UnaL2 LINE 3' element: a 54-nucleotide RNA sequence from Synaphobranchus kaupii. Pairs were carried over by alignment from the consensus structure, which is taken from published work. Rfam classes the family as a cis-regulatory element.

RNA sequence: AAAAAAAGAAGUUGUAAGUCGCUCUGGAUAAGAGCGUCCGCUAAAUGCCUGUAA
Numbered sequence: 001a002a003a004a005a006a007a008g009a010a011g012u013u014g015u016a017a018g019u020c021g022c023u024c025u026g027g028a029u030a031a032g033a034g035c036g037u038c039c040g041c042u043a044a045a046u047g048c049c050u051g052u053a054a
Base pairs, nucleotide, nucleotide: 013043014041015040020036021035022034023033024032025031
Taxonomically the source falls in Synaphobranchus (Eukaryota, Teleostei, Elopocephalai, Elopomorpha). On this family, see Baba et al., RNA 2004: "Solution structure of an RNA stem-loop derived from the 3' conserved region of eel LINE UnaL2".